Overview: Shown here is a 99-nucleotide RNA sequence from Gracilibacillus ureilyticus, a member of the family "TPP riboswitch aptamer (THI element)". The organism belongs to Gracilibacillus, within Bacteria. The base pairs follow the family's consensus structure, which is taken from published work. A search with the family's covariance model found it, with a score of 75 bits.
RNA sequence: AAUUUCUGCUAGGGGAGCAUGUAAUUGCUGAGAGAUAUAUAUCGACCCUUUGAACCUGAUCUAGUUAACACUAGCGUAGGGAAGUGGAAUUAGCGGUUU
Numbered sequence: 001a002a003u004u005u006c007u008g009c010u011a012g013g014g015g016a017g018c019a020u021g022u023a024a025u026u027g028c029u030g031a032g033a034g035a036u037a038u039a040u041a042u043c044g045a046c047c048c049u050u051u052g053a054a055c056c057u058g059a060u061c062u063a064g065u066u067a068a069c070a071c072u073a074g075c076g077u078a079g080g081g082a083a084g085u086g087g088a089a090u091u092a093g094c095g096g097u098u099u
Base pairs, nucleotide, nucleotide: 006087007086008085009084010083011049012048013047014046017028018027019026035042036041055080056079057078058077061074062073063072064071